This 98-nucleotide RNA from Limimonas halophila belongs to the Rfam family "rpsB sRNA". The match comes from Rfam's covariance-model search (40 bits). A reference for the family is Meyer et al. (2009), "Identification of candidate structured RNAs in the marine organism 'Candidatus Pelagibacter ubique'", BMC Genomics. The family's RNA type in Rfam is small RNA.

RNA sequence: CACACGCGGGCCAGCCCGGCGGCGAUGCCGGGGCGUCCGGUGUCCGCGCGCGGCGCGGAUUCCCGGCCCGCGGAGGUCCAACCGGAGAGACGAGGUUA
Numbered sequence: 001c002a003c004a005c006g007c008g009g010g011c012c013a014g015c016c017c018g019g020c021g022g023c024g025a026u027g028c029c030g031g032g033g034c035g036u037c038c039g040g041u042g043u044c045c046g047c048g049c050g051c052g053g054c055g056c057g058g059a060u061u062c063c064c065g066g067c068c069c070g071c072g073g074a075g076g077u078c079c080a081a082c083c084g085g086a087g088a089g090a091c092g093a094g095g096u097u098a
Stems, first nucleotide, its partner, number of pairs: 001075001003073001005072007015032005042060008